[Rfam]
RNA sequence: CCACUUUUCAUUUAGGGAAUCAAGCCUAUAUUGGAAGGCGUCGGUUUCGGCCGACUAUGGCGAUAAACUGUGGCGUGCAAUAGACGCAGCGGACCCGGGGGCAGUACCCGGCGGCUCCACCAUAAAUGGUGGUGUAUCUGGACACCGUUUCUGACGGGGCCGAACCAGGAUCGACGUGUGUUGAAAAGCGCUGUUUUCGCUCGGAAUGGGACCACCGCAACGGCCCAUUUACACAAGUGCCAACGAUAACGAAGCACUCGCUAUUGCGGCGUAACCCCACGGCCUAACGGCCAAAGGUUACUCUAAAAUGCGCGGUUGGACCGCACCGGGCAACAGAAGCGGAAUCC
Numbered sequence: 001c002c003a004c005u006u007u008u009c010a011u012u013u014a015g016g017g018a019a020u021c022a023a024g025c026c027u028a029u030a031u032u033g034g035a036a037g038g039c040g041u042c043g044g045u046u047u048c049g050g051c052c053g054a055c056u057a058u059g060g061c062g063a064u065a066a067a068c069u070g071u072g073g074c075g076u077g078c079a080a081u082a083g084a085c086g087c088a089g090c091g092g093a094c095c096c097g098g099g100g101g102c103a104g105u106a107c108c109c110g111g112c113g114g115c116u117c118c119a120c121c122a123u124a125a126a127u128g129g130u131g132g133u134g135u136a137u138c139u140g141g142a143c144a145c146c147g148u149u150u151c152u153g154a155c156g157g158g159g160c161c162g163a164a165c166c167a168g169g170a171u172c173g174a175c176g177u178g179u180g181u182u183g184a185a186a187a188g189c190g191c192u193g194u195u196u197u198c199g200c201u202c203g204g205a206a207u208g209g210g211a212c213c214a215c216c217g218c219a220a221c222g223g224c225c226c227a228u229u230u231a232c233a234c235a236a237g238u239g240c241c242a243a244c245g246a247u248a249a250c251g252a253a254g255c256a257c258u259c260g261c262u263a264u265u266g267c268g269g270c271g272u273a274a275c276c277c278c279a280c281g282g283c284c285u286a287a288c289g290g291c292c293a294a295a296g297g298u299u300a301c302u303c304u305a306a307a308a309u310g311c312g313c314g315g316u317u318g319g320a321c322c323g324c325a326c327c328g329g330g331c332a333a334c335a336g337a338a339g340c341g342g343a344a345u346c347c
Base pairs, nucleotide, nucleotide: 040055041054042053043052044051059201060200061199062198063197070194071193072192073191074190075189076188085180086179087178089177090176091175095111096110097109098108099107112162113161114160115159116158117157118156202217203216204215207227208226209225212223213222313328314327315326316325319345322342
This 347-nucleotide RNA from Stakelama tenebrarum belongs to the Rfam family "Alphaproteobacteria transfer-messenger RNA". The source organism's lineage runs through Bacteria, Pseudomonadati, Pseudomonadota, Sphingomonadales and Stakelama. Bacterial tmRNA, also known as 10Sa RNA or SsrA, is named for its dual tRNA and mRNA-like properties. A search with the family's covariance model found it, with a score of 231 bits. By type it is a non-coding RNA gene.